[Rfam]
The family of this 53-nucleotide sequence from Solanum lycopersicum is "Plastid-atpF group II-D1 intron". It scores 57 bits against the family's covariance model. About the family: Plastid atpF is a non-coding RNA (ncRNA) recognised in plastids.
RNA sequence: AAGUAUUUUAUCGAUAUAGAAUACUCAUAUUGAUAUAAUGAAUUUAACCAUUU
Numbered sequence: 001a002a003g004u005a006u007u008u009u010a011u012c013g014a015u016a017u018a019g020a021a022u023a024c025u026c027a028u029a030u031u032g033a034u035a036u037a038a039u040g041a042a043u044u045u046a047a048c049c050a051u052u053u
Base pairs, nucleotide, nucleotide: 011033012032013031014030015029016028017027